[Rfam]
RNA sequence: AAAAAGGGCCGUUUGGCUAUGUAUGCCACAUCCAUCCUCGUUUGAUGGGUGCCGUAUGGAUAUCAAGACAUAUGGCCGGCAUAAUUUGUGGAAAACAUUAGGGUUGGCUCGCUCCGGCCGACCCUACA
Dot-bracket structure: .......((((..((((.......))))((((((((.......))))))))(((((((..........))))))).))))..................(((((((((.(((...))))))))))))..
U11 spliceosomal RNA: a 128-nucleotide sequence from Dichanthelium oligosanthes. Rfam classes the family as a spliceosomal small nuclear RNA. Pairs were carried over by alignment from the consensus structure, which is taken from published work.